Rfam assigns this 137-nucleotide RNA sequence from Thiemannella venezuelensis to the family "c-di-AMP riboswitch aptamer (ydaO/yuaA leader)". A search with the family's covariance model found it, with a score of 88 bits. Taxonomically the source falls in Thiemannella (Bacteria, Bacillati, Streptosporangiales, Streptosporangiaceae).

[Rfam]
RNA sequence: UGGGCACGGACGCCGAAUCCGCGAACCCGCGGAACCGGGAACCCACGUUUUCUGGGGUGAAUCAACGCGCUCGCGUGUUGUAGGGCACUUUCAGCCCGAACCCGACAGCUAACCCGGUAGGCGCUAUGGAAGCCGAA
Numbered sequence: 001u002g003g004g005c006a007c008g009g010a011c012g013c014c015g016a017a018u019c020c021g022c023g024a025a026c027c028c029g030c031g032g033a034a035c036c037g038g039g040a041a042c043c044c045a046c047g048u049u050u051u052c053u054g055g056g057g058u059g060a061a062u063c064a065a066c067g068c069g070c071u072c073g074c075g076u077g078u079u080g081u082a083g084g085g086c087a088c089u090u091u092c093a094g095c096c097c098g099a100a101c102c103c104g105a106c107a108g109c110u111a112a113c114c115c116g117g118u119a120g121g122c123g124c125u126a127u128g129g130a131a132g133c134c135g136a137a
Stems, first nucleotide, its partner, number of pairs: 011123004018033005034118006044054002055103003063080004083097004